This 121-nucleotide sequence from Streptomyces tateyamensis belongs to the Rfam family "Streptomyces-metH RNA". A search with the family's covariance model found it, with a score of 74 bits. The family's RNA type in Rfam is small RNA.
[Rfam]
RNA sequence: AGGCCCACCAUACGGAACACCCUCCGUCGUGGCGGGCCCGGGCAGCUAGGCUGGCCGCGUGCAUACCCGCUCAGGGGGCGUGCAUAGCCGACAGCCGUCGCGUCCAGGGAGUAGCCACAUG
Numbered sequence: 001a002g003g004c005c006c007a008c009c010a011u012a013c014g015g016a017a018c019a020c021c022c023u024c025c026g027u028c029g030u031g032g033c034g035g036g037c038c039c040g041g042g043c044a045g046c047u048a049g050g051c052u053g054g055c056c057g058c059g060u061g062c063a064u065a066c067c068c069g070c071u072c073a074g075g076g077g078g079c080g081u082g083c084a085u086a087g088c089c090g091a092c093a094g095c096c097g098u099c100g101c102g103u104c105c106a107g108g109g110a111g112u113a114g115c116c117a118c119a120u121g
Base pairs, nucleotide, nucleotide: 060084061083062082063081066078067077068076087101088100090099091098092097